[Rfam]
RNA sequence: UUUAUAUGAUGAUAAAAGAAAACGGCGAUUCCUUAAUGUUGCUUUUUAUUUUUAAAAAGUAACAUUUUAAAGUAAUAUGAGCGUCACAAGCGAGUAGUUUUCAAUCUGAUAAAA
Numbered sequence: 001u002u003u004a005u006a007u008g009a010u011g012a013u014a015a016a017a018g019a020a021a022a023c024g025g026c027g028a029u030u031c032c033u034u035a036a037u038g039u040u041g042c043u044u045u046u047u048a049u050u051u052u053u054a055a056a057a058a059g060u061a062a063c064a065u066u067u068u069a070a071a072g073u074a075a076u077a078u079g080a081g082c083g084u085c086a087c088a089a090g091c092g093a094g095u096a097g098u099u100u101u102c103a104a105u106c107u108g109a110u111a112a113a114a
Base pairs, nucleotide, nucleotide: 004110011106025082026081029075030074032072036065037064038063039062040061041060042059043058044057045056046055047054048053
RNA: small nucleolar RNA snoR15
Organism: Plasmodium ovale